The record is a 111-nucleotide sequence from Setaria italica, which matches "MIR394 microRNA precursor family" in Rfam. It scores 92 bits against the family's covariance model. For this family Rfam cites "Computational identification of plant microRNAs and their targets, including a stress-induced miRNA" (Jones-Rhoades and Bartel, Mol Cell, 2004). Gene Ontology terms of the family: miRNA-mediated post-transcriptional gene silencing and RISC complex. Rfam 15.1 lists 724 matches to the family in 216 species.
Nucleotides: 111
Base pairs, nucleotide, nucleotide: 013101016097017096018095019094020093021092025088026087027086028085029084030083031082032081033080034079035078
Number, partner (000 for none) and nucleotide at each position: 001000c002000u003000u004000a005000c006000u007000g008000a009000g010000a011000g012000u013101u014000c015000c016097u017096u018095g019094g020093c021092a022000u023000u024000c025088u026087g027086u028085c029084c030083a031082c032081c033080u034079c035078c036000u037000u038000g039000c040000u041000g042000a043000u044000c045000u046000u047000g048000c049000a050000g051000a052000a053000a054000g055000u056000c057000u058000c059000u060000c061000a062000a063000a064000u065000c066000u067000g068000u069000u070000g071000u072000u073000u074000u075000u076000u077000u078035g079034g080033a081032g082031g083030u084029g085028g086027g087026c088025a089000u090000a091000c092021u093020g094019c095018c096017a097016a098000u099000g100000g101013a102000g103000c104000u105000g106000u107000g108000u109000a110000g111000g